[Rfam]
RNA sequence: GUUUCUUGCGAGGCCCCUUCCUCCUCCCUCGGGGCCUGUAGCAAAAGCGGCGAUACGUCUCCUCCUCCCUCGUAUCGCCGCACUUU
Numbered sequence: 001g002u003u004u005c006u007u008g009c010g011a012g013g014c015c016c017c018u019u020c021c022u023c024c025u026c027c028c029u030c031g032g033g034g035c036c037u038g039u040a041g042c043a044a045a046a047g048c049g050g051c052g053a054u055a056c057g058u059c060u061c062c063u064c065c066u067c068c069c070u071c072g073u074a075u076c077g078c079c080g081c082a083c084u085u086u
Stems, first nucleotide, its partner, number of pairs: 007040003011037007048080010